[Rfam]
This 91-nucleotide RNA sequence from Caenorhabditis japonica belongs to the Rfam family "Caenorhabditis sRNA ceN23-1". The family's RNA type in Rfam is small RNA. Pairs were carried over by alignment from the consensus structure, which was predicted with CMfinder. A reference for the family is Jia et al. (2007), "Systematic identification of non-coding RNA 2,2,7-trimethylguanosine cap structures in Caenorhabditis elegans", BMC Mol Biol.

RNA sequence: GCCUACCUUACUCGAAUGCCCGUCGAUGAAGACCAACUAAAUGACGAAUCCUAACCAUCCAUUGCGGAUAUGAGGCAUUUGUCUGAGCGGG
Numbered sequence: 001g002c003c004u005a006c007c008u009u010a011c012u013c014g015a016a017u018g019c020c021c022g023u024c025g026a027u028g029a030a031g032a033c034c035a036a037c038u039a040a041a042u043g044a045c046g047a048a049u050c051c052u053a054a055c056c057a058u059c060c061a062u063u064g065c066g067g068a069u070a071u072g073a074g075g076c077a078u079u080u081g082u083c084u085g086a087g088c089g090g091g
Base pairs, nucleotide, nucleotide: 020090021089022088023087043083044082045081046080047079048078049077050075051074052073054071058067059066060064